[Rfam]
RNA sequence: CCCUCCUCUGAAGACUGCUCUCAAACCAAGACCUAUAGGCAGUAUAAUACCUCGUCUUCUAUCCAGUAGUGAGGGAUUACUGGAAAUAAGUUUCGCA
Numbered sequence: 001c002c003c004u005c006c007u008c009u010g011a012a013g014a015c016u017g018c019u020c021u022c023a024a025a026c027c028a029a030g031a032c033c034u035a036u037a038g039g040c041a042g043u044a045u046a047a048u049a050c051c052u053c054g055u056c057u058u059c060u061a062u063c064c065a066g067u068a069g070u071g072a073g074g075g076a077u078u079a080c081u082g083g084a085a086a087u088a089a090g091u092u093u094c095g096c097a
Stems, first nucleotide, its partner, number of pairs: 015042005021037001029057004062084007
RNA: PhotoRC-II RNA